[Rfam]
RNA: Ribosomal protein L20 leader
RNA sequence: CAGAUUAAGCAGAAGCCGUCCGCUUCUCACCUUACAAGACGCACAGUUACUAAGGUUAUAUGUCGGUCAUAUAUGAGCGGGCAGCUAUGCUGUUCGCUCUUUUUUUGCGGA
Number, nucleotide and partner (000 for none) at each position: 001c000002a000003g000004a000005u000006u000007a000008a000009g000010c000011a027012g026013a025014a024015g023016c022017c000018g000019u000020c000021c000022g016023c015024u014025u013026c012027u011028c000029a056030c055031c054032u000033u000034a000035c000036a051037a000038g000039a047040c046041g000042c000043a000044c000045a000046g040047u039048u000049a000050c000051u036052a000053a000054g031055g030056u029057u000058a000059u000060a000061u000062g000063u000064c000065g000066g000067u000068c000069a000070u000071a000072u000073a000074u000075g000076a098077g097078c096079g095080g094081g093082c092083a091084g090085c089086u000087a000088u000089g085090c084091u083092g082093u081094u080095c079096g078097c077098u076099c000100u000101u000102u000103u000104u000105u000106u000107g000108c000109g000110g000111a000